[Rfam]
RNA sequence: ACGAUGUUCCGCUGCAAUACGAAAUGUUGGAAUGAGCAUCUG
Dot-bracket structure: ..(((((((...(.((((.......))))..).)))))))..
A member of the RNA family "Ribosomal protein L19 leader" from Metabacillus litoralis, 42 nucleotides long.
Rfam describes the family as follows. This family is a putative r-protein leader autoregulatory structure found in B. subtilis and other low-GC Gram-positive bacteria. It is located in the 5' untranslated regions of mRNAs encoding ribosomal protein L19 (rplS).
Taxonomically the source falls in Metabacillus (Bacteria, Bacillota, Bacilli, Caryophanales).
For this family Rfam cites "Diverse mechanisms for regulating ribosomal protein synthesis in Escherichia coli" (Zengel and Lindahl, Prog Nucleic Acid Res Mol Biol, 1994).
The family's RNA type in Rfam is cis-regulatory leader.